Shown here is a 109-nucleotide sequence from Rousettus aegyptiacus, a member of the family "Small nucleolar RNA U6-53/MBII-28". The match comes from Rfam's covariance-model search (114 bits). The pairing is the family consensus, mapped onto this sequence. Taxonomically the source falls in Rousettus (Eukaryota, Chordata, Tetrapoda, Eutheria). Rfam links the family to the GO terms nucleolus and RNA processing.

RNA sequence: CCCCUGUGAUGAGUUGCCAUGCUAAUACUGAAACACCAGAUAGGGGGUUUUACCCUGUGUUGGGUGUUACUGAGAUAAAUUCUACUUCUCUUAAAGCUACCUGAGGGGC
Number, nucleotide and partner (000 for none) at each position: 001c108002c107003c106004c105005u000006g000007u000008g000009a000010u000011g000012a000013g000014u000015u000016g000017c000018c000019a000020u000021g000022c000023u000024a000025a000026u000027a000028c000029u000030g000031a000032a000033a000034c000035a000036c000037c000038a000039g000040a000041u057042a056043g055044g054045g053046g000047g000048u000049u000050u000051u000052a000053c045054c044055c043056u042057g041058u000059g000060u000061u000062g000063g000064g000065u000066g000067u000068u000069a000070c000071u000072g000073a000074g000075a000076u000077a000078a000079a000080u000081u000082c000083u000084a000085c000086u000087u000088c000089u000090c000091u000092u000093a000094a000095a000096g000097c000098u000099a000100c000101c000102u000103g000104a000105g004106g003107g002108g001109c000